The family of this 164-nucleotide RNA from Gordonia iterans is "FMN riboswitch aptamer (RFN element)". A search with the family's covariance model found it, with a score of 83 bits. The family's consensus secondary structure is taken from published work. Rfam links the family to the GO term FMN binding.
[Rfam]
RNA sequence: GCGAGUUCUCGGGGCGGGGUGAAAGUCCCCACCGGCGGUGAUGGACUCCGCUCGGCGCAGGCCGGGCGGGAUUCGAGCCCGCGAGCGCCCGCUGUGUGCGGGGUCAGCAGACUCCGGUGAGAUUCCGGGGCCGACGGUCAGAGUCCGGAUACGAGAGAACGACG
Dot-bracket structure: ....((((((......(((.......))).[[((((((........................................))))..((....................))....(((((.......)))))..)).(((.....]]))).......))))))....